[Rfam]
RNA sequence: CCCGCGACAGGACGGAAAGACCCCGUGGAGCUUUACUGUAGCUUGAUAUUGAACUUUGGUGUAAGAUGUACAGGAUAGGUAGGAGACAAAGAAGCAUGCACGCUAGUGUGUGUGGAGUCGACGUUGGGAUACUACCCUUGUUGCACUGGAGUUCUAACCUACAGCCGUAAUCCGGUUGGGGGACAGUGUCAGGUGGGCAGUUUGACUGGGGCGGUCGCCUCCCAAAGAGUAACGGAGGCGCUCAAAGGUUUCCUCAGACUGGUUGGAAAUCAGUCGAAGAGUGUAAAGGCAGAAGGAAGCUUGACUGCGAGACCUACAAGUCGAGCAGGGACGAAAGUCGGACUUAGUGAUCCGGCGGUACCGAAUGGAAGGGCCGUCGCUCAACGGAUAAAAGCUACCCCGGGGAUAACAGGCUGAUCACUCCCAAGAGUUCACAUCGACGGAGUGGUUUGGCACCUCGAUGUCGGCUCAUCGCAUCCUGGGGCUGAAGUCGGUCCCAAGGGUUGGGCUGUUCGCCCAUUAAAGCGGUACGCGAGCUGGGUUCAGAACGUCGUGAGACAGUUCGGUCCCUAUCCGUCGUGGGCGCA
Numbered sequence: 001c002c003c004g005c006g007a008c009a010g011g012a013c014g015g016a017a018a019g020a021c022c023c024c025g026u027g028g029a030g031c032u033u034u035a036c037u038g039u040a041g042c043u044u045g046a047u048a049u050u051g052a053a054c055u056u057u058g059g060u061g062u063a064a065g066a067u068g069u070a071c072a073g074g075a076u077a078g079g080u081a082g083g084a085g086a087c088a089a090a091g092a093a094g095c096a097u098g099c100a101c102g103c104u105a106g107u108g109u110g111u112g113u114g115g116a117g118u119c120g121a122c123g124u125u126g127g128g129a130u131a132c133u134a135c136c137c138u139u140g141u142u143g144c145a146c147u148g149g150a151g152u153u154c155u156a157a158c159c160u161a162c163a164g165c166c167g168u169a170a171u172c173c174g175g176u177u178g179g180g181g182g183a184c185a186g187u188g189u190c191a192g193g194u195g196g197g198c199a200g201u202u203u204g205a206c207u208g209g210g211g212c213g214g215u216c217g218c219c220u221c222c223c224a225a226a227g228a229g230u231a232a233c234g235g236a237g238g239c240g241c242u243c244a245a246a247g248g249u250u251u252c253c254u255c256a257g258a259c260u261g262g263u264u265g266g267a268a269a270u271c272a273g274u275c276g277a278a279g280a281g282u283g284u285a286a287a288g289g290c291a292g293a294a295g296g297a298a299g300c301u302u303g304a305c306u307g308c309g310a311g312a313c314c315u316a317c318a319a320g321u322c323g324a325g326c327a328g329g330g331a332c333g334a335a336a337g338u339c340g341g342a343c344u345u346a347g348u349g350a351u352c353c354g355g356c357g358g359u360a361c362c363g364a365a366u367g368g369a370a371g372g373g374c375c376g377u378c379g380c381u382c383a384a385c386g387g388a389u390a391a392a393a394g395c396u397a398c399c400c401c402g403g404g405g406a407u408a409a410c411a412g413g414c415u416g417a418u419c420a421c422u423c424c425c426a427a428g429a430g431u432u433c434a435c436a437u438c439g440a441c442g443g444a445g446u447g448g449u450u451u452g453g454c455a456c457c458u459c460g461a462u463g464u465c466g467g468c469u470c471a472u473c474g475c476a477u478c479c480u481g482g483g484g485c486u487g488a489a490g491u492c493g494g495u496c497c498c499a500a501g502g503g504u505u506g507g508g509c510u511g512u513u514c515g516c517c518c519a520u521u522a523a524a525g526c527g528g529u530a531c532g533c534g535a536g537c538u539g540g541g542u543u544c545a546g547a548a549c550g551u552c553g554u555g556a557g558a559c560a561g562u563u564c565g566g567u568c569c570c571u572a573u574c575c576g577u578c579g580u581g582g583g584c585g586c587a
Base pairs, nucleotide, nucleotide: 001583002582003581004580005579006578007577008576010575011574012573014570015569022404023403024402025401027400028399029396030395031394032393033392035201036200037199038198042193043192044191045190046189047188048187051154052153053152054151055150056149057148058147059146060145061144062143063142064141066139068137078136079135080134081133082132085119086118087117094113095112096111097110098109099108100107101106158181159180160179162178163177164176165175166174167173204216205215206214207213217239218238219237220236221235222234240385242342243341248300249299250298251297252296253295254280255279257275258274259273260272261271262270281290282289305328306327307326308325311322312321313320330339331338332337353379354378355377356376357375358374359373361372362371413454414453415452417451418448419447420446421445422444423443424442428438429437465540466538467537468536469535470532471529472528473527474526475525478503479502481498482497483496484495485494486493505519506518507517508516509515546564547563548562549561550559551558552557

Rfam assigns this 587-nucleotide part of an RNA from Haloplasma contractile to the family "Bacterial large subunit ribosomal RNA".
The base pairs follow the family's consensus structure, which is taken from published work.
The source organism's lineage runs through Bacteria, Bacillati, Haloplasmatales, Haloplasmataceae and Haloplasma contractile.